[Rfam]
RNA sequence: AGGAGGCGGUCGAGGGAAUCUGAGAAGGCGCACAAGGUUUGUGUCCAAUACGCUCCACACCUUGCGCUACUCAGGUCUGCUCGUGCCCUCCC
Numbered sequence: 001a002g003g004a005g006g007c008g009g010u011c012g013a014g015g016g017a018a019u020c021u022g023a024g025a026a027g028g029c030g031c032a033c034a035a036g037g038u039u040u041g042u043g044u045c046c047a048a049u050a051c052g053c054u055c056c057a058c059a060c061c062u063u064g065c066g067c068u069a070c071u072c073a074g075g076u077c078u079g080c081u082c083g084u085g086c087c088c089u090c091c092c
Stems, first nucleotide, its partner, number of pairs: 002091005008086001011083004016078001018076007027068006035062004040052005
Shown here is a 92-nucleotide RNA sequence from Equus caballus, a member of the family "mir-3200 microRNA precursor family". It is one of the family's seed sequences. Its family is annotated with RISC complex and miRNA-mediated post-transcriptional gene silencing in the Gene Ontology. The family has 4 seed sequences and 66 matches in Rfam 15.1.